This 243-nucleotide sequence from Desulfonema ishimotonii belongs to the Rfam family "Bacterial large signal recognition particle RNA". Rfam classes the family as a non-coding RNA gene. It scores 143 bits against the family's covariance model. Rfam describes the family as follows. The signal recognition particle (SRP) is a universally conserved ribonucleoprotein involved in the co-translational targeting of proteins to membranes. Gene Ontology terms of the family: SRP-dependent cotranslational protein targeting to membrane, signal sequence recognition and signal recognition particle, plasma membrane targeting.

[Rfam]
RNA sequence: UUGUGCUAGGUGGGGAGUUAGCGGUGCCCUUUACCCGAAAUCCGCUUUAUGCGGGACUGAAUCCCCCCUGAAGGGUUGUCGUCUGGAAAUGCAUCAUUCUGAUCGGCCGCCACGUAACAGACACUCGUGAACUUUGUCAGGUCCGGAAGGAAGCAGCAAUAAGCGAAGGCGUCUGUGUCGUGGAUCGAUCCCGGUCAGUUUAUGACGCUGUCCCCGGCAGGCAAUUCGACAGGGGGUGCACAA
Numbered sequence: 001u002u003g004u005g006c007u008a009g010g011u012g013g014g015g016a017g018u019u020a021g022c023g024g025u026g027c028c029c030u031u032u033a034c035c036c037g038a039a040a041u042c043c044g045c046u047u048u049a050u051g052c053g054g055g056a057c058u059g060a061a062u063c064c065c066c067c068c069u070g071a072a073g074g075g076u077u078g079u080c081g082u083c084u085g086g087a088a089a090u091g092c093a094u095c096a097u098u099c100u101g102a103u104c105g106g107c108c109g110c111c112a113c114g115u116a117a118c119a120g121a122c123a124c125u126c127g128u129g130a131a132c133u134u135u136g137u138c139a140g141g142u143c144c145g146g147a148a149g150g151a152a153g154c155a156g157c158a159a160u161a162a163g164c165g166a167a168g169g170c171g172u173c174u175g176u177g178u179c180g181u182g183g184a185u186c187g188a189u190c191c192c193g194g195u196c197a198g199u200u201u202a203u204g205a206c207g208c209u210g211u212c213c214c215c216g217g218c219a220g221g222c223a224a225u226u227c228g229a230c231a232g233g234g235g236g237u238g239c240a241c242a243a
Base pairs, nucleotide, nucleotide: 001243002242003241004240005239006238009058010057011056012030013029014028015027017025018024019023034055035054036053037052039050064236065235066234067233068232069231070230073227074226075225076224077223079220081218082217083216085214086213088211090210091209092207094205095204096203097202099198100197101196102195103194104193105192106191110183111182112181113180114179115177116176118175119174120173121172122171125166126165127164128163134159135158136157137156142151143150144149